[Rfam]
Nucleotides: 146
Base pairs, nucleotide, nucleotide: 021054022053023052024051025050027048031045032044033043061097063095064094065093066092067091068090069089070088071087112140113139114138115137116136117135118134119133120132121131
Number, partner (000 for none) and nucleotide at each position: 001000c002000a003000u004000c005000g006000g007000c008000a009000a010000u011000u012000a013000c014000c015000g016000c017000c018000g019000a020000g021054u022053c023052c024051g025050g026000a027048a028000a029000a030000a031045g032044g033043c034000c035000c036000g037000u038000c039000c040000c041000c042000c043033g044032c045031c046000u047000g048027u049000a050025c051024c052023g053022g054021a055000c056000a057000g058000c059000a060000u061097a062000a063095g064094c065093g066092g067091c068090a069089g070088c071087c072000u073000c074000a075000u076000c077000c078000c079000c080000c081000u082000c083000u084000c085000c086000g087071g088070g089069c090068u091067g092066c093065c094064g095063c096000c097061u098000c099000g100000u101000u102000u103000c104000g105000a106000g107000u108000a109000a110000g111000g112140c113139c114138g115137c116136c117135g118134u119133g120132g121131u122000u123000u124000c125000c126000c127000c128000u129000c130000c131121a132120c133119c134118a135117c136116g137115g138114c139113g140112g141000c142000a143000u144000u145000u146000a
The family of this 146-nucleotide sequence from Mesorhizobium sp. J18 is "Alphaproteobacterial sRNA ar7". Rfam classes the family as a small RNA. For this family Rfam cites "A survey of sRNA families in alpha-proteobacteria" (del Val et al., RNA Biol, 2012). Pairs were carried over by alignment from the consensus structure. Taxonomically the source falls in Mesorhizobium (Bacteria, Pseudomonadati, Alphaproteobacteria, Phyllobacteriaceae).